[Rfam]
RNA sequence: CCGCCCCCCAGAGCAAGUAAUCAAGAAUAGGCCAACCUGGACGAACAGAGCCUAUCCUGGAUUACUUGAACUGGGUCGCAG
Numbered sequence: 001c002c003g004c005c006c007c008c009c010a011g012a013g014c015a016a017g018u019a020a021u022c023a024a025g026a027a028u029a030g031g032c033c034a035a036c037c038u039g040g041a042c043g044a045a046c047a048g049a050g051c052c053u054a055u056c057c058u059g060g061a062u063u064a065c066u067u068g069a070a071c072u073g074g075g076u077c078g079c080a081g
Stems, first nucleotide, its partner, number of pairs: 003079002007075005014068009024058002027055006